[Rfam]
RNA sequence: AUUCAUCUUCGGGGCUGGGUGCAAUUCCCGACCGGCGGUGAUGAAGCGUAUGCUUCUAAGCCCGCGAGCCUGUAAAGGGCAGGAUUUGGUGUGAUUCCAAAGCCGACAGUAUAGUCUGGAUGGGAGAAGGUGAAG
Numbered sequence: 001a002u003u004c005a006u007c008u009u010c011g012g013g014g015c016u017g018g019g020u021g022c023a024a025u026u027c028c029c030g031a032c033c034g035g036c037g038g039u040g041a042u043g044a045a046g047c048g049u050a051u052g053c054u055u056c057u058a059a060g061c062c063c064g065c066g067a068g069c070c071u072g073u074a075a076a077g078g079g080c081a082g083g084a085u086u087u088g089g090u091g092u093g094a095u096u097c098c099a100a101a102g103c104c105g106a107c108a109g110u111a112u113a114g115u116c117u118g119g120a121u122g123g124g125a126g127a128a129g130g131u132g133a134a135g
Stems, first nucleotide, its partner, number of pairs: 003133008017029003031115002033105002035065004060103002070079001085101005107118003

FMN riboswitch aptamer (RFN element): a 135-nucleotide RNA from Heyndrickxia shackletonii. Rfam 15.1 lists 6,230 matches to the family in 5,120 species. Pairs were carried over by alignment from the consensus structure, which is taken from published work. For this family Rfam cites "Regulation of riboflavin biosynthesis and transport genes in bacteria by transcriptional and translational attenuation" (Vitreschak et al., Nucleic Acids Res, 2002). It scores 120 bits against the family's covariance model.